[Rfam]
RNA sequence: UCUGCCUCACCCACCCAGCCGAGAAUAGUGCACCUUGUUUCUGGCUCCAGUGGGUGUGUCGGAGG
Numbered sequence: 001u002c003u004g005c006c007u008c009a010c011c012c013a014c015c016c017a018g019c020c021g022a023g024a025a026u027a028g029u030g031c032a033c034c035u036u037g038u039u040u041c042u043g044g045c046u047c048c049a050g051u052g053g054g055u056g057u058g059u060c061g062g063a064g065g
Base pairs, nucleotide, nucleotide: 001063002062003061004060006058009055010054011053012052013051014050018045019044020043021042023040024039025038026037027036028035
Dot-bracket structure: ((((.(..((((((...((((.((((((......)))))).))))....))))))..).))))..